[Rfam]
The family of this 188-nucleotide RNA sequence from Alkalicoccus daliensis is "Lysine riboswitch aptamer". The match comes from Rfam's covariance-model search (111 bits).
RNA sequence: AGUGAGUUUAGAGGCGCAUUGUUUAAAAUUAGGUAAAUGGAGGGAAUGGGGUCCCUAAGAUAUUUACUGAAAGGAAACAUUGCCGAAGCAGACUGUUUCACCAUGAACGGAAUGCUGGGGUUGGACUGAAUAAGUUCAACACUGUCAUAUAGUCUUAAAAUCGGACUGUAUGAAGGGCUAUCUCACGC
Numbered sequence: 001a002g003u004g005a006g007u008u009u010a011g012a013g014g015c016g017c018a019u020u021g022u023u024u025a026a027a028a029u030u031a032g033g034u035a036a037a038u039g040g041a042g043g044g045a046a047u048g049g050g051g052u053c054c055c056u057a058a059g060a061u062a063u064u065u066a067c068u069g070a071a072a073g074g075a076a077a078c079a080u081u082g083c084c085g086a087a088g089c090a091g092a093c094u095g096u097u098u099c100a101c102c103a104u105g106a107a108c109g110g111a112a113u114g115c116u117g118g119g120g121u122u123g124g125a126c127u128g129a130a131u132a133a134g135u136u137c138a139a140c141a142c143u144g145u146c147a148u149a150u151a152g153u154c155u156u157a158a159a160a161u162c163g164g165a166c167u168g169u170a171u172g173a174a175g176g177g178c179u180a181u182c183u184c185a186c187g188c
Stems, first nucleotide, its partner, number of pairs: 006183001009180003016083003020079005032068008087116004093110006117143002120140008145173010